[Rfam]
RNA: Plastid-psbl-rps4 3UTR RNA
RNA sequence: UGGAAAUAGAGGGAUUUGAACCCUCAGUACGAAAAACUCGUACAACGGAUUAG
Numbered sequence: 001u002g003g004a005a006a007u008a009g010a011g012g013g014a015u016u017u018g019a020a021c022c023c024u025c026a027g028u029a030c031g032a033a034a035a036a037c038u039c040g041u042a043c044a045a046c047g048g049a050u051u052a053g
Stems, first nucleotide, its partner, number of pairs: 009025005027043006